This 169-nucleotide RNA sequence from Streptomyces smaragdinus belongs to the Rfam family "Streptomyces sRNA scr5239". Rfam links the family to the GO terms negative regulation of translation and mRNA binding. A search with the family's covariance model found it, with a score of 89 bits. The base pairs follow the family's consensus structure, which is taken from published work.

RNA sequence: CUUCCGGCCUCCCCGCACAGGAGGGCGGAACGAGGAUCGUGGCGCUCUCUGCCCUGACUGCGUCCCGGCCUCCCGCCGGCCGUUCCCGCGGGGCCGCACACCCCGCGACACCGCCGGCUCAGCUCCGGGCUGCGGUGCCGGGGCGGGUUGAGGGUCCCGCUCCAGGCGC
Numbered sequence: 001c002u003u004c005c006g007g008c009c010u011c012c013c014c015g016c017a018c019a020g021g022a023g024g025g026c027g028g029a030a031c032g033a034g035g036a037u038c039g040u041g042g043c044g045c046u047c048u049c050u051g052c053c054c055u056g057a058c059u060g061c062g063u064c065c066c067g068g069c070c071u072c073c074c075g076c077c078g079g080c081c082g083u084u085c086c087c088g089c090g091g092g093g094c095c096g097c098a099c100a101c102c103c104c105g106c107g108a109c110a111c112c113g114c115c116g117g118c119u120c121a122g123c124u125c126c127g128g129g130c131u132g133c134g135g136u137g138c139c140g141g142g143g144c145g146g147g148u149u150g151a152g153g154g155u156c157c158c159g160c161u162c163c164a165g166g167c168g169c
Stems, first nucleotide, its partner, number of pairs: 003029004008024005032072004037068001039066001041064002044061002046057002076117005082111001090103003122136003126132002140163002143160005